The family of this 112-nucleotide RNA sequence from Paramagnetospirillum marisnigri is "TPP riboswitch aptamer (THI element)". Gene Ontology term of the family: thiamine pyrophosphate binding. The source organism's lineage runs through Bacteria, Pseudomonadati, Pseudomonadota, Rhodospirillales and Paramagnetospirillum. Vitamin B(1) in its active form thiamin pyrophosphate (TPP) is an essential coenzyme that is synthesised by coupling of pyrimidine and thiazole moieties in bacteria. The previously detected thiamin-regulatory element, thi box was extended, resulting in a new, highly conserved RNA secondary structure, the THI element, which is widely distributed in eubacteria and also occurs in some archaea. Analysis of operon structures identified a large number of new candidate thiamin-regulated genes, mostly transporters, in various prokaryotic organisms. It scores 77 bits against the family's covariance model.
RNA sequence: GGCAUUCCGAAGGGGAGCCCCAUGACUGGGGCUGAGAGGCCGGAAACCAUGCCGGCGACCCUUGGAACCUGAUCCGGGUCAUUCCGGCGAAGGGAUCGGAACCUCGCUCUUC
Numbered sequence: 001g002g003c004a005u006u007c008c009g010a011a012g013g014g015g016a017g018c019c020c021c022a023u024g025a026c027u028g029g030g031g032c033u034g035a036g037a038g039g040c041c042g043g044a045a046a047c048c049a050u051g052c053c054g055g056c057g058a059c060c061c062u063u064g065g066a067a068c069c070u071g072a073u074c075c076g077g078g079u080c081a082u083u084c085c086g087g088c089g090a091a092g093g094g095a096u097c098g099g100a101a102c103c104u105c106g107c108u109c110u111u112c
Stems, first nucleotide, its partner, number of pairs: 006100005011062004017032005039056005068093003074087004